[Rfam]
RNA sequence: GCCGCACCGGCGCCGAGGGGGAACCGGGGACCCACCGCAGCACUGGGGUGAGUUCUCCUGCGCGCCGGUCCGCCGGGGUGCAGAGACAGGGCGCCUUCUUCCCAGCCCGAACCCGUCAGCCAACUCGGUAGGCGGUCGCUGAGGAAGAA
Dot-bracket structure: (((....(...........)..((((((....((.........))(((.....((((.........................))))..((((............))))...))).........)))))).)))................